Shown here is a 132-nucleotide RNA sequence from Paenibacillus uliginis, a member of the family "c-di-AMP riboswitch aptamer (ydaO/yuaA leader)". This family represents a conserved RNA structure found upstream of the ydaO and yuaA genes in Bacillus subtilis and related genes in other bacteria. It scores 72 bits against the family's covariance model.

RNA sequence: UUAAUGAAUUUGCCGAAUUUCGUUUUGAAAACGGGGGAACCGAUCUGGGUGAAUUAUUCUUGAAGUCAAGGGAAUAUAGGAGACCUUCAACCGAACCCUUAGCUAACUCCGUAGGCACCGAAGGGAGAAAGU
Numbered sequence: 001u002u003a004a005u006g007a008a009u010u011u012g013c014c015g016a017a018u019u020u021c022g023u024u025u026u027g028a029a030a031a032c033g034g035g036g037g038a039a040c041c042g043a044u045c046u047g048g049g050u051g052a053a054u055u056a057u058u059c060u061u062g063a064a065g066u067c068a069a070g071g072g073a074a075u076a077u078a079g080g081a082g083a084c085c086u087u088c089a090a091c092c093g094a095a096c097c098c099u100u101a102g103c104u105a106a107c108u109c110c111g112u113a114g115g116c117a118c119c120g121a122a123g124g125g126a127g128a129a130a131g132u
Stems, first nucleotide, its partner, number of pairs: 011117004018030003031112006047098003055076007079092002